[Rfam]
Annotation:
The record is a 143-nucleotide sequence from Rhizobium metallidurans, which matches "Alphaproteobacterial sRNA ar35" in Rfam. The pairing is the family consensus, mapped onto this sequence. For this family Rfam cites "A survey of sRNA families in alpha-proteobacteria" (del Val et al., RNA Biol, 2012). It scores 107 bits against the family's covariance model.

RNA sequence: AUCGGCAUUGCUGGUCAGUGUUCCACACAGCGGACGCUCGCGGUUGCCGGUAUCGCUUUUAUGCUUUUGACCACGGAUGUACUGGCACUGGUGUGAGAUGCGAAUAGGAAGGUCGGUGCGGUUUCGCCCCGGCCUUUUUUAUU
Numbered sequence: 001a002u003c004g005g006c007a008u009u010g011c012u013g014g015u016c017a018g019u020g021u022u023c024c025a026c027a028c029a030g031c032g033g034a035c036g037c038u039c040g041c042g043g044u045u046g047c048c049g050g051u052a053u054c055g056c057u058u059u060u061a062u063g064c065u066u067u068u069g070a071c072c073a074c075g076g077a078u079g080u081a082c083u084g085g086c087a088c089u090g091g092u093g094u095g096a097g098a099u100g101c102g103a104a105u106a107g108g109a110a111g112g113u114c115g116g117u118g119c120g121g122u123u124u125c126g127c128c129c130c131g132g133c134c135u136u137u138u139u140u141a142u143u
Stems, first nucleotide, its partner, number of pairs: 003049004007044003017038004054102003059098001062093004068087002071085003104142002106139011118127003